[Rfam]
RNA sequence: GAGUCAUCGGAAGGUAGUGAGUUACCACAGUUGACUGCUCACAGUCAGAUAAGGACCCAACUCCUUAUUCCACUCUUUCCCCUUCUCACUACUGCACUUGAUUAGUCUUAA
Numbered sequence: 001g002a003g004u005c006a007u008c009g010g011a012a013g014g015u016a017g018u019g020a021g022u023u024a025c026c027a028c029a030g031u032u033g034a035c036u037g038c039u040c041a042c043a044g045u046c047a048g049a050u051a052a053g054g055a056c057c058c059a060a061c062u063c064c065u066u067a068u069u070c071c072a073c074u075c076u077u078u079c080c081c082c083u084u085c086u087c088a089c090u091a092c093u094g095c096a097c098u099u100g101a102u103u104a105g106u107c108u109u110a111a
Stems, first nucleotide, its partner, number of pairs: 001107002004104001006102003010099002014095002016090006029074003033070002
Overview:
This 111-nucleotide RNA sequence from Suricata suricatta belongs to the Rfam family "Y RNA". Lineage of the source: Eukaryota > Bilateria > Gnathostomata > Theria > Suricata. The family's consensus secondary structure is taken from published work. The family has 104 seed sequences and 26,986 matches in Rfam 15.1.